[Rfam]
RNA sequence: GGGCGGCCUCCGCUGAAUCCGGUCACUCCGGAGCCGGGGACCCACCGCAUCAUCAGGGGUGAAUCGGCGCGCGCACCGCCGGCACAGCAGCAGCGUCCAGCGGCACGCGCACCGUAGGGCAGCCUUCCGAUCGCCCGAACCCGACAGCUAACCCGGUAGGCGGCGUACGGAAGGAGU
Dot-bracket structure: ..........((((...(((.........)))((((((....(............)(((.....(((............................................)))..((((............))))...))).........)))))).))))...............
A member of the RNA family "c-di-AMP riboswitch aptamer (ydaO/yuaA leader)" from Streptomyces sp. AJS327, 177 nucleotides long. The pairing is the family consensus, mapped onto this sequence. It scores 63 bits against the family's covariance model. This family represents a conserved RNA structure found upstream of the ydaO and yuaA genes in Bacillus subtilis and related genes in other bacteria. The ydaO/yuaA element is thought to act as a genetic 'off' switch for the ydaO and yuaA genes in its native state. It is believed that the element may be triggered during osmotic shock leading to activation of ydaO, a predicted amino acid transporter gene, and members of the yuaA-yubG operon which code for KtrA and KtrB K+ transporters.